[Rfam]
RNA sequence: UUUUCCAGUACGCUUAAUCUUCCAAUACGGAAGAGCGGGGGACCCAACAACUGCGUAUGAUCCGAUUCCAGGACGACGCAGCGGUCCGAGCAAUCUUGGGGUGAAUUACGCGGAAGCGGCUCAUGAAGCCGGCAUGCGAAUAGGGCAACUCUCUUUGUCCGAACCCGACAGCUAACCUCGCAAGCGUUACAGAGAGAGGUC
Numbered sequence: 001u002u003u004u005c006c007a008g009u010a011c012g013c014u015u016a017a018u019c020u021u022c023c024a025a026u027a028c029g030g031a032a033g034a035g036c037g038g039g040g041g042a043c044c045c046a047a048c049a050a051c052u053g054c055g056u057a058u059g060a061u062c063c064g065a066u067u068c069c070a071g072g073a074c075g076a077c078g079c080a081g082c083g084g085u086c087c088g089a090g091c092a093a094u095c096u097u098g099g100g101g102u103g104a105a106u107u108a109c110g111c112g113g114a115a116g117c118g119g120c121u122c123a124u125g126a127a128g129c130c131g132g133c134a135u136g137c138g139a140a141u142a143g144g145g146c147a148a149c150u151c152u153c154u155u156u157g158u159c160c161g162a163a164c165c166c167g168a169c170a171g172c173u174a175a176c177c178u179c180g181c182a183a184g185c186g187u188u189a190c191a192g193a194g195a196g197a198g199g200u201c
Base pairs, nucleotide, nucleotide: 011186012185013184014183018034019033020032021031022030035181036180037179038178039177040176045098046097099166100165101164107140109138110137111136112135143160144159145158146157

A member of the RNA family "c-di-AMP riboswitch aptamer (ydaO/yuaA leader)" from Cohnella faecalis, 201 nucleotides long. The source organism's lineage runs through Bacteria, Bacillati, Bacillota, Paenibacillaceae and Cohnella. About the family: This family represents a conserved RNA structure found upstream of the ydaO and yuaA genes in Bacillus subtilis and related genes in other bacteria. The ydaO/yuaA element is thought to act as a genetic 'off' switch for the ydaO and yuaA genes in its native state. It is believed that the element may be triggered during osmotic shock leading to activation of ydaO, a predicted amino acid transporter gene, and members of the yuaA-yubG operon which code for KtrA and KtrB K+ transporters.